[Rfam]
RNA sequence: AGAGUCGGAUAAAUGGUCGCUCCUUUUAACGCCGAAAGGCUUAAGGAGAGGAAAGUCCGGGCUUCACAGGGCAGGAUGCCGGAUAACGUCCGGUGGAGGCGACUCCAAGGAUAGUGCAACAGAGAUAUACCGCCGUCUCCCUGCGGGACGGUAAGGGUGGAAAGGCGGGGUAAGAGCCCACCGAUUCUCUGGUAACAGGGAAUGCCAUGUAAACCCCAUCCGAAGCAAGACCGAAUCGAAAGCGAUAAUCCGGCCCGGAUUGCUUUCAGGUGGGUCGCUAAAGUCUGCCGGCGACGGCAGAAUCAGACAGAUGACCAUUCACGACAUAACCCGGCUUAUCGUCCGGCUCUGAAC
Numbered sequence: 001a002g003a004g005u006c007g008g009a010u011a012a013a014u015g016g017u018c019g020c021u022c023c024u025u026u027u028a029a030c031g032c033c034g035a036a037a038g039g040c041u042u043a044a045g046g047a048g049a050g051g052a053a054a055g056u057c058c059g060g061g062c063u064u065c066a067c068a069g070g071g072c073a074g075g076a077u078g079c080c081g082g083a084u085a086a087c088g089u090c091c092g093g094u095g096g097a098g099g100c101g102a103c104u105c106c107a108a109g110g111a112u113a114g115u116g117c118a119a120c121a122g123a124g125a126u127a128u129a130c131c132g133c134c135g136u137c138u139c140c141c142u143g144c145g146g147g148a149c150g151g152u153a154a155g156g157g158u159g160g161a162a163a164g165g166c167g168g169g170g171u172a173a174g175a176g177c178c179c180a181c182c183g184a185u186u187c188u189c190u191g192g193u194a195a196c197a198g199g200g201a202a203u204g205c206c207a208u209g210u211a212a213a214c215c216c217c218a219u220c221c222g223a224a225g226c227a228a229g230a231c232c233g234a235a236u237c238g239a240a241a242g243c244g245a246u247a248a249u250c251c252g253g254c255c256c257g258g259a260u261u262g263c264u265u266u267c268a269g270g271u272g273g274g275u276c277g278c279u280a281a282a283g284u285c286u287g288c289c290g291g292c293g294a295c296g297g298c299a300g301a302a303u304c305a306g307a308c309a310g311a312u313g314a315c316c317a318u319u320c321a322c323g324a325c326a327u328a329a330c331c332c333g334g335c336u337u338a339u340c341g342u343c344c345g346g347c348u349c350u351g352a353a354c
Stems, first nucleotide, its partner, number of pairs: 001350010011339001012319007020048006053337003057334005062225004069256004074221005079093005094108001095106004109216002114214002116210003130156002132152008164182002167179003183205001184203008229276004238267006247261005284301007
RNA: Bacterial RNase P class A
Organism: Eubacteriaceae bacterium CHKCI004